[Rfam]
RNA sequence: AUGGAGGAUCUGUAAAGCUCAGGAGGGAUAGCGCCAUCGUUUUGUGUUUGAUCGACGAUUAACGAAUGAUGGUGGUGCUAUCCAUCCUGAGUUUCAUAGCUUCUUCAC
Number, nucleotide and partner (000 for none) at each position: 001a000002u000003g000004g000005a000006g000007g000008a000009u000010c099011u000012g000013u000014a000015a000016a093017g092018c091019u090020c089021a088022g087023g086024a085025g000026g083027g082028a081029u080030a079031g078032c077033g076034c075035c074036a000037u000038c000039g000040u000041u000042u000043u000044g000045u000046g000047u000048u000049u000050g000051a000052u000053c000054g000055a000056c000057g000058a000059u000060u000061a000062a000063c000064g000065a000066a000067u000068g000069a000070u000071g000072g000073u000074g035075g034076u033077g032078c031079u030080a029081u028082c027083c026084a000085u024086c023087c022088u021089g020090a019091g018092u017093u016094u000095c000096a000097u000098a000099g010100c000101u000102u000103c000104u000105u000106c000107a000108c000

MIR390 microRNA precursor family: a 108-nucleotide RNA sequence from Dorcoceras hygrometricum.
Gene Ontology terms of the family: RISC complex and miRNA-mediated post-transcriptional gene silencing.
The match comes from Rfam's covariance-model search (86 bits).